This 155-nucleotide RNA from Lactococcus garvieae belongs to the Rfam family "leu/phe leader RNA from Lactococcus". A search with the family's covariance model found it, with a score of 75 bits.
RNA sequence: ACUAUUAAAAUGAAGAGGCUCAAAAAUGAUUAACGCUUAUCACACAGUUUUGUUGUUGAUUAUGGGCUCACACUAAGUACUGGAAAGUAAAGGUGUGAGUCCUCUUUGGCGUUGGUCAAAAAGGGGCAAAAAGAUGUCCCUUUGGGCAUCUUUUU
Numbered sequence: 001a002c003u004a005u006u007a008a009a010a011u012g013a014a015g016a017g018g019c020u021c022a023a024a025a026a027u028g029a030u031u032a033a034c035g036c037u038u039a040u041c042a043c044a045c046a047g048u049u050u051u052g053u054u055g056u057u058g059a060u061u062a063u064g065g066g067c068u069c070a071c072a073c074u075a076a077g078u079a080c081u082g083g084a085a086a087g088u089a090a091a092g093g094u095g096u097g098a099g100u101c102c103u104c105u106u107u108g109g110c111g112u113u114g115g116u117c118a119a120a121a122a123g124g125g126g127c128a129a130a131a132a133g134a135u136g137u138c139c140c141u142u143u144g145g146g147c148a149u150c151u152u153u154u155u
Base pairs, nucleotide, nucleotide: 027118028117029116030115038055039054041052044050064102065101067099068098069097070096071095072094073093074089075088078085122141123140124139125138126137127136128135